[Rfam]
RNA sequence: UCUAUAACUCGAGAUAUGGGCUGAACACUAAACAAUGUUUGGGCUGCAGGACAGAUUUAGAUUUCUCUUUUGUUGCUCAGAUUUGAGCUUGAAAACGGUAGUUUUGAAUCUUAGACUCUUCAUGAAUGUUUUAGACUUAUGUCUUAACUUUCCAUC
Numbered sequence: 001u002c003u004a005u006a007a008c009u010c011g012a013g014a015u016a017u018g019g020g021c022u023g024a025a026c027a028c029u030a031a032a033c034a035a036u037g038u039u040u041g042g043g044c045u046g047c048a049g050g051a052c053a054g055a056u057u058u059a060g061a062u063u064u065c066u067c068u069u070u071u072g073u074u075g076c077u078c079a080g081a082u083u084u085g086a087g088c089u090u091g092a093a094a095a096c097g098g099u100a101g102u103u104u105u106g107a108a109u110c111u112u113a114g115a116c117u118c119u120u121c122a123u124g125a126a127u128g129u130u131u132u133a134g135a136c137u138u139a140u141g142u143c144u145u146a147a148c149u150u151u152c153c154a155u156c
Stems, first nucleotide, its partner, number of pairs: 003154001006151002009146001011145010021134005027129002035123003041119003045115001048112004054105002058101001060099001062098002068092002072088003
Shown here is a 156-nucleotide RNA sequence from Populus deltoides, a member of the family "MIR2912 microRNA precursor family".
The organism belongs to Populus, within Eukaryota.
Gene Ontology terms of the family: miRNA-mediated post-transcriptional gene silencing and RISC complex.